Notes
Shown here is a 114-nucleotide RNA from Kluyvera genomosp. 3, a member of the family "Ribosomal S15 leader". Rfam describes the family as follows. The E. coli Ribosomal S15 gene 5' UTR can form two alternative structures. The source organism's lineage runs through Bacteria, Pseudomonadota, Gammaproteobacteria, Enterobacteriaceae and Kluyvera.

RNA sequence: AGGGGCUGCUGAAUUAGAGAUCGGCACCCUUUCUUUCUUUUAAAUUUGGAGUUCAAAAUGUCUCUAAGCGUUGAAGCUAAAGCACAAAUCGUUUCUGAGUUCGGUCGUGGCGCG
Numbered sequence: 001a002g003g004g005g006c007u008g009c010u011g012a013a014u015u016a017g018a019g020a021u022c023g024g025c026a027c028c029c030u031u032u033c034u035u036u037c038u039u040u041u042a043a044a045u046u047u048g049g050a051g052u053u054c055a056a057a058a059u060g061u062c063u064c065u066a067a068g069c070g071u072u073g074a075a076g077c078u079a080a081a082g083c084a085c086a087a088a089u090c091g092u093u094u095c096u097g098a099g100u101u102c103g104g105u106c107g108u109g110g111c112g113c114g
Stems, first nucleotide, its partner, number of pairs: 007026006045068007